[Rfam]
RNA sequence: CGGUGGGGUAGAGGCGCAAUCUUUAUGAGUAGGCCGUGUGAGGAUGACAACGAAGAUCACGGUUGAAAGGAAAUUUUGCCGAAGCAAGGUAAAGAAGUCAAUAUUUAUCUUGUUGGGGUCACUCUAAAGAAGGGUGGCACUGUCAUUAUGGGGAAUUUGUCAGAAUAUAAUCUUACAAACCUCAUAAUGGGGAGCUACAGAUCGU
Dot-bracket structure: .......((((....((((..(((.......(((((((...................)))))))......)))..))))...(((((((((((..........)))))))))))((.((((((((.....)))))))).)).(((((((((((..........................)))))))))))....)))).......
A member of the RNA family "Lysine riboswitch aptamer" from Bacillus aquiflavi, 205 nucleotides long.